The record is a 235-nucleotide RNA from Vescimonas coprocola, which matches "Group II catalytic intron D1-D4-6" in Rfam. Taxonomically the source falls in Vescimonas (Bacteria, Bacillati, Bacillota, Oscillospiraceae). On this family, see Lehmann and Schmidt, Crit Rev Biochem Mol Biol 2003: "Group II introns: structure and catalytic versatility of large natural ribozymes". From the family's description: Group II introns are found in rRNA, tRNA and mRNA of organelles in fungi, plants and protists, and also in mRNA in bacteria.

RNA sequence: AUAGCCGGCCUGGUAAGGCUUGGCAAGCCAUCAGUAUCGAGUCCUUGGAGCGUCAAAGGCCAACAAUGACGUUUAAGCGUAGGACAGAGAGCAGGAAGGCCGUAAUGCGAAAGCGUGAAGUGAUAGAGCUCCGUCAUAGAAUCAAUUGUGUGGGAUGGCCAUGUGCCUCCGCAGUCAUCAACAAGGAACGGUCGCUAACUGCAAGACCGGGAAAACACGCCGGAGUCCAAGAGCA
Numbered sequence: 001a002u003a004g005c006c007g008g009c010c011u012g013g014u015a016a017g018g019c020u021u022g023g024c025a026a027g028c029c030a031u032c033a034g035u036a037u038c039g040a041g042u043c044c045u046u047g048g049a050g051c052g053u054c055a056a057a058g059g060c061c062a063a064c065a066a067u068g069a070c071g072u073u074u075a076a077g078c079g080u081a082g083g084a085c086a087g088a089g090a091g092c093a094g095g096a097a098g099g100c101c102g103u104a105a106u107g108c109g110a111a112a113g114c115g116u117g118a119a120g121u122g123a124u125a126g127a128g129c130u131c132c133g134u135c136a137u138a139g140a141a142u143c144a145a146u147u148g149u150g151u152g153g154g155a156u157g158g159c160c161a162u163g164u165g166c167c168u169c170c171g172c173a174g175u176c177a178u179c180a181a182c183a184a185g186g187a188a189c190g191g192u193c194g195c196u197a198a199c200u201g202c203a204a205g206a207c208c209g210g211g212a213a214a215a216c217a218c219g220c221c222g223g224a225g226u227c228c229a230a231g232a233g234c235a
Stems, first nucleotide, its partner, number of pairs: 010034004017029004021204001023202002037088002041085001043083003046079002048074008058064001126227001128226006148220005154179006189209005